A member of the RNA family "Vertebrate telomerase RNA" from Oxylabes madagascariensis, 459 nucleotides long. It is annotated as a non-coding RNA gene. Rfam 15.1 lists 523 matches to the family in 477 species. Telomerase is a ribonucleoprotein reverse transcriptase that synthesises telomeric DNA. Telomerase RNAs differ greatly in sequence and structure between vertebrates, ciliates and yeasts, but they share a 5' pseudoknot structure close to the template sequence. Vertebrate telomerase RNAs have a 3' H/ACA snoRNA-like domain. Clan: Telomerase clan. Its family is annotated with telomere maintenance via telomerase, telomerase catalytic core complex and telomerase activity in the Gene Ontology. Lineage of the source: Eukaryota > Opisthokonta > Dipnotetrapodomorpha > Dinosauria > Oxylabes.
RNA sequence: UGUGCCGGGGUGGGCAGGCCCUGCGGCCGACUAACCCUAAUGGCGACUGCGCCCCUCAGACCCGCCCGCUGUUUUACUCGCUGACUUUCAGCGGGCAGAGGGAGCGGCCCGGGGAAAGGGGGUGGCGGGGAUGGGGGGAAAAGAGUUCCGGCCCCAAAAAAAGCCAGCGAGGGGGAUCCACACCCCGGCCCACCCUGGGGUCCCUGUCCCUCCUCCGUGACCAGGGACGGUCCCGCCCUCGCCCCUCGUGGAGGCCGCGGUCGGCAGGCCCAGCGCCGCUGCCGCCGCGAAGAGUUCGUCUCUGUCAGCCUCGGCGGCGGCCGGGACCAGAGGGUCGGCCCGCCCACCCUGGGCAGCCGGGGGACCCCAGCAGAGCAAAACGGGCGCGGCGCCGCGGGGCGCUGAGCACCCGUGCCUCCCACAGACGUGGAGUGCGCGGUCGGCGCCGCGCCGACACCC
Numbered sequence: 001u002g003u004g005c006c007g008g009g010g011u012g013g014g015c016a017g018g019c020c021c022u023g024c025g026g027c028c029g030a031c032u033a034a035c036c037c038u039a040a041u042g043g044c045g046a047c048u049g050c051g052c053c054c055c056u057c058a059g060a061c062c063c064g065c066c067c068g069c070u071g072u073u074u075u076a077c078u079c080g081c082u083g084a085c086u087u088u089c090a091g092c093g094g095g096c097a098g099a100g101g102g103a104g105c106g107g108c109c110c111g112g113g114g115a116a117a118g119g120g121g122g123u124g125g126c127g128g129g130g131a132u133g134g135g136g137g138g139a140a141a142a143g144a145g146u147u148c149c150g151g152c153c154c155c156a157a158a159a160a161a162a163g164c165c166a167g168c169g170a171g172g173g174g175g176a177u178c179c180a181c182a183c184c185c186c187g188g189c190c191c192a193c194c195c196u197g198g199g200g201u202c203c204c205u206g207u208c209c210c211u212c213c214u215c216c217g218u219g220a221c222c223a224g225g226g227a228c229g230g231u232c233c234c235g236c237c238c239u240c241g242c243c244c245c246u247c248g249u250g251g252a253g254g255c256c257g258c259g260g261u262c263g264g265c266a267g268g269c270c271c272a273g274c275g276c277c278g279c280u281g282c283c284g285c286c287g288c289g290a291a292g293a294g295u296u297c298g299u300c301u302c303u304g305u306c307a308g309c310c311u312c313g314g315c316g317g318c319g320g321c322c323g324g325g326a327c328c329a330g331a332g333g334g335u336c337g338g339c340c341c342g343c344c345c346a347c348c349c350u351g352g353g354c355a356g357c358c359g360g361g362g363g364a365c366c367c368c369a370g371c372a373g374a375g376c377a378a379a380a381c382g383g384g385c386g387c388g389g390c391g392c393c394g395c396g397g398g399g400c401g402c403u404g405a406g407c408a409c410c411c412g413u414g415c416c417u418c419c420c421a422c423a424g425a426c427g428u429g430g431a432g433u434g435c436g437c438g439g440u441c442g443g444c445g446c447c448g449c450g451c452c453g454a455c456a457c458c459c
Stems, first nucleotide, its partner, number of pairs: 005188008014179001017177001019175004053102005064096008080168004085163001086161003195370007226340001228338001230336001232334002237325003241321003256289005262284004267277003291303004384451010410439005417432001419430002